[Rfam]
Rfam assigns this 128-nucleotide RNA sequence to the family "RAGATH-7-assoc RNA". The family's consensus secondary structure is taken from published work.
RNA sequence: AAAGAGUAUAUUGCACUAUUAUAUCAACCCAAUGAUAUAUGAAAACUCGUGUAUGAUGUAUAUCUCUCUAAUUGAGGCGUUAUCCGGUCUGCCAGGAUAUGAAGGCGCAGAGGCGUGCAAAACUCUUU
Numbered sequence: 001a002a003a004g005a006g007u008a009u010a011u012u013g014c015a016c017u018a019u020u021a022u023a024u025c026a027a028c029c030c031a032a033u034g035a036u037a038u039a040u041g042a043a044a045a046c047u048c049g050u051g052u053a054u055g056a057u058g059u060a061u062a063u064c065u066c067u068c069u070a071a072u073u074g075a076g077g078c079g080u081u082a083u084c085c086g087g088u089c090u091g092c093c094a095g096g097a098u099a100u101g102a103a104g105g106c107g108c109a110g111a112g113g114c115g116u117g118c119a120a121a122a123c124u125c126u127u128u
Stems, first nucleotide, its partner, number of pairs: 001128007011120006023036004037052006066076003081099005086093001

It is one of the family's seed sequences.